The family of this 87-nucleotide sequence from Propionispora vibrioides is "c-di-GMP-I riboswitch aptamer".
A search with the family's covariance model found it, with a score of 81 bits.
The organism belongs to Propionispora, within Bacteria.

[Rfam]
RNA sequence: AAAAAUAUUGGGUAAACUUAUCGAAAGGUAAGGACACAAAGCCAUGGGUCUAAGGAUGUAUGCAUCUAUGAUUGCCAGGUUGCCUGU
Numbered sequence: 001a002a003a004a005a006u007a008u009u010g011g012g013u014a015a016a017c018u019u020a021u022c023g024a025a026a027g028g029u030a031a032g033g034a035c036a037c038a039a040a041g042c043c044a045u046g047g048g049u050c051u052a053a054g055g056a057u058g059u060a061u062g063c064a065u066c067u068a069u070g071a072u073u074g075c076c077a078g079g080u081u082g083c084c085u086g087u
Base pairs, nucleotide, nucleotide: 012037013036017032018031019030020029021028022027040081041080042079043078045077046076047075048072049071050070055066056065057064058063